[Rfam]
RNA sequence: AGAUUUUGCAAUGAGGAUGAAAAAGCUCCCUCUUCUGAAAUUAAAAAGUUGAGGAAACUUGCUGGCGGAAUCGAACCUAAAACUCUAAACGCCACCACUGAGUAA
Numbered sequence: 001a002g003a004u005u006u007u008g009c010a011a012u013g014a015g016g017a018u019g020a021a022a023a024a025g026c027u028c029c030c031u032c033u034u035c036u037g038a039a040a041u042u043a044a045a046a047a048g049u050u051g052a053g054g055a056a057a058c059u060u061g062c063u064g065g066c067g068g069a070a071u072c073g074a075a076c077c078u079a080a081a082a083c084u085c086u087a088a089a090c091g092c093c094a095c096c097a098c099u100g101a102g103u104a105a
Stems, first nucleotide, its partner, number of pairs: 006105004